[Rfam]
RNA sequence: GGUCUAAAGGGUCCGUAGCCGGUUCGAUAAGUCCUCUGGGAAAUCUGGUUGCUUAACAAUCAGACUGCCAAGGGAUACUGUCGAACUUGAGACCGGGAGAGGUAAGAGGUACUUCAGGGGUAGGAGUGAAAUCUUGUAAUCCCUGGGGGACCAUCUGUGGCGAAGGCGUCUUACCAGAACGGGUCUGACGGUGAGGGACGAAAGCUGGGGGCGCAAACCGGAUUAGAUACCCGGGUAGUCCCAGCCGUAAACGAUGCUCGCUAUGUGUCAGGUACGGUGUGACCGUAUCUGGUGCCGUAGGGAAGCCGUGAAGCGAGCCACCUGGGAAGUACGGUCGCAAGACUGAAACUUAAAGGAAU
Numbered sequence: 001g002g003u004c005u006a007a008a009g010g011g012u013c014c015g016u017a018g019c020c021g022g023u024u025c026g027a028u029a030a031g032u033c034c035u036c037u038g039g040g041a042a043a044u045c046u047g048g049u050u051g052c053u054u055a056a057c058a059a060u061c062a063g064a065c066u067g068c069c070a071a072g073g074g075a076u077a078c079u080g081u082c083g084a085a086c087u088u089g090a091g092a093c094c095g096g097g098a099g100a101g102g103u104a105a106g107a108g109g110u111a112c113u114u115c116a117g118g119g120g121u122a123g124g125a126g127u128g129a130a131a132u133c134u135u136g137u138a139a140u141c142c143c144u145g146g147g148g149g150a151c152c153a154u155c156u157g158u159g160g161c162g163a164a165g166g167c168g169u170c171u172u173a174c175c176a177g178a179a180c181g182g183g184u185c186u187g188a189c190g191g192u193g194a195g196g197g198a199c200g201a202a203a204g205c206u207g208g209g210g211g212c213g214c215a216a217a218c219c220g221g222a223u224u225a226g227a228u229a230c231c232c233g234g235g236u237a238g239u240c241c242c243a244g245c246c247g248u249a250a251a252c253g254a255u256g257c258u259c260g261c262u263a264u265g266u267g268u269c270a271g272g273u274a275c276g277g278u279g280u281g282a283c284c285g286u287a288u289c290u291g292g293u294g295c296c297g298u299a300g301g302g303a304a305g306c307c308g309u310g311a312a313g314c315g316a317g318c319c320a321c322c323u324g325g326g327a328a329g330u331a332c333g334g335u336c337g338c339a340a341g342a343c344u345g346a347a348a349c350u351u352a353a354a355g356g357a358a359u
Stems, first nucleotide, its partner, number of pairs: 001322003009319001011199004016193001018192003022086007030079002032075004037070003045063007090186003093182003101175007108152002112148008123134003160167002204245006213239002218234004256318006265295013300307002324351003333344004

Archaeal small subunit ribosomal RNA: a 359-nucleotide part of an RNA from an uncultured archaeon. The family has 86 seed sequences and 709 matches in Rfam 15.1. Clan: SSU clan. A reference for the family is Cannone et al. (2002), "The comparative RNA web (CRW) site: an online database of comparative sequence and structure information for ribosomal, intron, and other RNAs", BMC Bioinformatics.